[Rfam]
RNA sequence: AUGUUUGAGUAAUCGCUGCAUCUUUGAUGUAGAGGAAAGUCCAUGCUCGCACAAUCUGAGAUGAUUGUAGUGUUCGUGCCUAGCGAAGUCAUAAGCUAGGGUAGUUUGGUUACGACUGGACUAACGGCAGGGAACACACCUAAGUUUACAAUUGUAAAUAUGGUGUAAAUACCUUGAAAGUGCCACAGUGACGGAGUCUUUAUAGAAAUAUAAAGAGUGGAACGGGGUAAACCCCACGAGCGAGAAACCCAAAAUUAGGUAGGGGCAUCCUUAGGAAGGAAUUGAACGGACUAAGGAACAAGCAAUAUGCUUGUAGACAGAUGAUUACUGCCUUUUGUAUGAGGGCUGACACCCGUUUGUAGUACGAAGGUACAGAACAUGGCUUACAAAA
Numbered sequence: 001a002u003g004u005u006u007g008a009g010u011a012a013u014c015g016c017u018g019c020a021u022c023u024u025u026g027a028u029g030u031a032g033a034g035g036a037a038a039g040u041c042c043a044u045g046c047u048c049g050c051a052c053a054a055u056c057u058g059a060g061a062u063g064a065u066u067g068u069a070g071u072g073u074u075c076g077u078g079c080c081u082a083g084c085g086a087a088g089u090c091a092u093a094a095g096c097u098a099g100g101g102u103a104g105u106u107u108g109g110u111u112a113c114g115a116c117u118g119g120a121c122u123a124a125c126g127g128c129a130g131g132g133a134a135c136a137c138a139c140c141u142a143a144g145u146u147u148a149c150a151a152u153u154g155u156a157a158a159u160a161u162g163g164u165g166u167a168a169a170u171a172c173c174u175u176g177a178a179a180g181u182g183c184c185a186c187a188g189u190g191a192c193g194g195a196g197u198c199u200u201u202a203u204a205g206a207a208a209u210a211u212a213a214a215g216a217g218u219g220g221a222a223c224g225g226g227g228u229a230a231a232c233c234c235c236a237c238g239a240g241c242g243a244g245a246a247a248c249c250c251a252a253a254a255u256u257a258g259g260u261a262g263g264g265g266c267a268u269c270c271u272u273a274g275g276a277a278g279g280a281a282u283u284g285a286a287c288g289g290a291c292u293a294a295g296g297a298a299c300a301a302g303c304a305a306u307a308u309g310c311u312u313g314u315a316g317a318c319a320g321a322u323g324a325u326u327a328c329u330g331c332c333u334u335u336u337g338u339a340u341g342a343g344g345g346c347u348g349a350c351a352c353c354c355g356u357u358u359g360u361a362g363u364a365c366g367a368a369g370g371u372a373c374a375g376a377a378c379a380u381g382g383c384u385u386a387c388a389a390a391a
Base pairs, nucleotide, nucleotide: 004391005390006389007387008329009328010327011326012325013324014323016032017031018030019029020028021027037385038384039383041382042381043380044379045378046244047243048242049241050240051068052067053066054065055064056063074239075238076237077236078235079100080099081098082097083096084095101125102123103122104121105120106119107118108117109116110115126234127233129174130173131172137165138164139163140162144159145158146157147156148155149154180232181231182228183227184226197216198215199214200213201212202211203210204209248264249263250262268297269296270295271294272293273292274291298314299313300312301311302310303309332370333369334368335367336366337365338364339363340362

The family of this 391-nucleotide RNA from Evansella cellulosilytica is "Bacterial RNase P class B". It is annotated as a ribozyme. It scores 324 bits against the family's covariance model. Rfam links the family to the GO terms ribonuclease P activity, dimeric ribonuclease P complex and tRNA processing. The source organism's lineage runs through Bacteria, Bacillati, Caryophanales, Evansella and Evansella cellulosilytica. Clan: RNaseP clan.